[Rfam]
RNA sequence: GGACGGCUAUGAUGCGGAAGGUUGCCGACACACCCGGCCCCUUUGCCAUGGGUGGAAGUCGGGAUAAUUUCCGUGGAGCAAGUUCGUUUCCGAGAAAAUGAGCGAAA
Numbered sequence: 001g002g003a004c005g006g007c008u009a010u011g012a013u014g015c016g017g018a019a020g021g022u023u024g025c026c027g028a029c030a031c032a033c034c035c036g037g038c039c040c041c042u043u044u045g046c047c048a049u050g051g052g053u054g055g056a057a058g059u060c061g062g063g064a065u066a067a068u069u070u071c072c073g074u075g076g077a078g079c080a081a082g083u084u085c086g087u088u089u090c091c092g093a094g095a096a097a098a099u100g101a102g103c104g105a106a107a
Stems, first nucleotide, its partner, number of pairs: 014074003019070003025062005083106004089102001091100002

Shown here is a 107-nucleotide sequence from Marininema mesophilum, a member of the family "S10-Clostridia ribosomal protein leader". It scores 38 bits against the family's covariance model. Rfam classes the family as a cis-regulatory leader. The literature on the family includes a 2020 paper in BMC Microbiol by Eckert and Weinberg, "Discovery of 20 novel ribosomal leader candidates in bacteria and archaea". Pairs were carried over by alignment from the consensus structure, which is taken from published work.